[Rfam]
A member of the RNA family "TPP riboswitch aptamer (THI element)" from Prosthecobacter gellanilyticus, 112 nucleotides long.

RNA sequence: CCGUCACGACAGGGGCGUCCCGUAGCAGGGACUGAGAUGGGUCUUCCUGGACCCGAACCCUCCGAACCUGAUGCGGGUCAUACCGCCGAAGGGAGCUCGCUCGGAGGUAUCU
Numbered sequence: 001c002c003g004u005c006a007c008g009a010c011a012g013g014g015g016c017g018u019c020c021c022g023u024a025g026c027a028g029g030g031a032c033u034g035a036g037a038u039g040g041g042u043c044u045u046c047c048u049g050g051a052c053c054c055g056a057a058c059c060c061u062c063c064g065a066a067c068c069u070g071a072u073g074c075g076g077g078u079c080a081u082a083c084c085g086c087c088g089a090a091g092g093g094a095g096c097u098c099g100c101u102c103g104g105a106g107g108u109a110u111c112u
Stems, first nucleotide, its partner, number of pairs: 007099003011061004016055001017032005039054005067092003073086004
About the family: Vitamin B(1) in its active form thiamin pyrophosphate (TPP) is an essential coenzyme that is synthesised by coupling of pyrimidine and thiazole moieties in bacteria.
A search with the family's covariance model found it, with a score of 72 bits.
Rfam links the family to the GO term thiamine pyrophosphate binding.